[Rfam]
RNA: Group II catalytic intron D1-D4-6
RNA sequence: GAAACCCCGCCGAGUAAACCUUAAGCCGAGGAACUCGUAGCGAGUCUUGGAGUAUCAGUAGUGAUAUUGAUGCUUAAGCGUAGACAGUUAGGCAGUAGGCCCGAAGUCCGCAAGGGCGAGUGAUUGAGCCUCGAAAAUAUUACAAAGUCGGGAAGGCCGACUGGCUCACAAACCAGGAAGGCAGCAUUGCACCAAGCGUUAACGGCGAGCGUGAUGUGGCUUCCCCGGGGUCAAAGAGCC
Numbered sequence: 001g002a003a004a005c006c007c008c009g010c011c012g013a014g015u016a017a018a019c020c021u022u023a024a025g026c027c028g029a030g031g032a033a034c035u036c037g038u039a040g041c042g043a044g045u046c047u048u049g050g051a052g053u054a055u056c057a058g059u060a061g062u063g064a065u066a067u068u069g070a071u072g073c074u075u076a077a078g079c080g081u082a083g084a085c086a087g088u089u090a091g092g093c094a095g096u097a098g099g100c101c102c103g104a105a106g107u108c109c110g111c112a113a114g115g116g117c118g119a120g121u122g123a124u125u126g127a128g129c130c131u132c133g134a135a136a137a138u139a140u141u142a143c144a145a146a147g148u149c150g151g152g153a154a155g156g157c158c159g160a161c162u163g164g165c166u167c168a169c170a171a172a173c174c175a176g177g178a179a180g181g182c183a184g185c186a187u188u189g190c191a192c193c194a195a196g197c198g199u200u201a202a203c204g205g206c207g208a209g210c211g212u213g214a215u216g217u218g219g220c221u222u223c224c225c226c227g228g229g230g231u232c233a234a235a236g237a238g239c240c
Stems, first nucleotide, its partner, number of pairs: 011037005019031004025206002038090004044085004048080002050075011125234001126232001128231006150225006156182003161176004187219005193213002196210002